[Rfam]
This 67-nucleotide RNA sequence from Domibacillus mangrovi belongs to the Rfam family "Bacillaceae-1 RNA". A search with the family's covariance model found it, with a score of 62 bits.
RNA sequence: AGCAGCAGAGUGCAGACUAAGAUCGUCACAUCCUGUAACAACGUCUGCAAGACCCACGUCCUGCGGG
Number, nucleotide and partner (000 for none) at each position: 001a000002g000003c000004a000005g000006c000007a000008g000009a000010g000011u049012g048013c047014a046015g045016a044017c043018u000019a000020a000021g000022a000023u000024c000025g039026u038027c000028a036029c035030a000031u000032c000033c000034u000035g029036u028037a000038a026039c025040a000041a000042c000043g017044u016045c015046u014047g013048c012049a011050a000051g000052a000053c067054c066055c065056a000057c063058g000059u000060c000061c000062u000063g057064c000065g055066g054067g053